[Rfam]
RNA sequence: GUCAUACUACGGUGCAUCGAGGUGGAAAGUAAACGAUGACCCAUAAGGAACUCUGGGGUAAAAUACGUAUCAAAAUGCAAAAUCGAAUCCUGGCCUGGGGUGCGCUCCGGGUCAGGUUUCUUU
Numbered sequence: 001g002u003c004a005u006a007c008u009a010c011g012g013u014g015c016a017u018c019g020a021g022g023u024g025g026a027a028a029g030u031a032a033a034c035g036a037u038g039a040c041c042c043a044u045a046a047g048g049a050a051c052u053c054u055g056g057g058g059u060a061a062a063a064u065a066c067g068u069a070u071c072a073a074a075a076u077g078c079a080a081a082a083u084c085g086a087a088u089c090c091u092g093g094c095c096u097g098g099g100g101u102g103c104g105c106u107c108c109g110g111g112u113c114a115g116g117u118u119u120c121u122u123u
Stems, first nucleotide, its partner, number of pairs: 001040005010035002014030002041048002057071004089116011
Rfam assigns this 123-nucleotide RNA from Paramixta manurensis to the family "Enterobacteria greA leader". Pairs were carried over by alignment from the consensus structure, which is taken from published work. On this family, see Naville and Gautheret, Genome Biol 2010: "Premature terminator analysis sheds light on a hidden world of bacterial transcriptional attenuation". The family's RNA type in Rfam is cis-regulatory leader. The match comes from Rfam's covariance-model search (123 bits).